RNA sequence: UACUUAUCAAGAAAGGCAGAGGGUAAUGGCCCGAUGAAGCCUUGGCAACCUCUCUCAACGAAAGUUGACAGAACAGGUGCCAAUUCCAUCCACAGCAAUGUGGGUAGAUAAGUC
Numbered sequence: 001u002a003c004u005u006a007u008c009a010a011g012a013a014a015g016g017c018a019g020a021g022g023g024u025a026a027u028g029g030c031c032c033g034a035u036g037a038a039g040c041c042u043u044g045g046c047a048a049c050c051u052c053u054c055u056c057a058a059c060g061a062a063a064g065u066u067g068a069c070a071g072a073a074c075a076g077g078u079g080c081c082a083a084u085u086c087c088a089u090c091c092a093c094a095g096c097a098a099u100g101u102g103g104g105u106a107g108a109u110a111a112g113u114c
Stems, first nucleotide, its partner, number of pairs: 002113007013043005021032003026089004044081004049077002051073001053071001085106001090103005
The record is a 114-nucleotide sequence from Lacibacter luteus, which matches "SAM riboswitch aptamer (S box leader)" in Rfam. The SAM riboswitch is found upstream of a number of genes which code for proteins involved in methionine or cysteine biosynthesis in Gram-positive bacteria. The SAM riboswitch acts at the level of transcription termination control. The family's consensus secondary structure is taken from published work. The match comes from Rfam's covariance-model search (80 bits).